[Rfam]
RNA sequence: GGUGAGAGUAGAAGCGUUCAGCCGUCGUACCGAUGGCGGGAAAUUGCUCUUGCG
Dot-bracket structure: ....((((((....[..((.((((((.....)))))).]))...))))))....
Numbered sequence: 001g002g003u004g005a006g007a008g009u010a011g012a013a014g015c016g017u018u019c020a021g022c023c024g025u026c027g028u029a030c031c032g033a034u035g036g037c038g039g040g041a042a043a044u045u046g047c048u049c050u051u052g053c054g
Stems, first nucleotide, its partner, number of pairs: 005050006015039001018041002021037006